Shown here is an 84-nucleotide RNA sequence, a member of the family "chrB-a RNA".
RNA sequence: CUCAAGGGGCUUCCGCGAUUGCCCCGUGAGGCGCCAGCCUGAAAUCGCGUCCUAUCUCCCCUCUGCCCAGGGAUGGACGCCGUG
Numbered sequence: 001c002u003c004a005a006g007g008g009g010c011u012u013c014c015g016c017g018a019u020u021g022c023c024c025c026g027u028g029a030g031g032c033g034c035c036a037g038c039c040u041g042a043a044a045u046c047g048c049g050u051c052c053u054a055u056c057u058c059c060c061c062u063c064u065g066c067c068c069a070g071g072g073a074u075g076g077a078c079g080c081c082g083u084g
Base pairs, nucleotide, nucleotide: 006025007024008023009022010021047080048079049078050077051076052075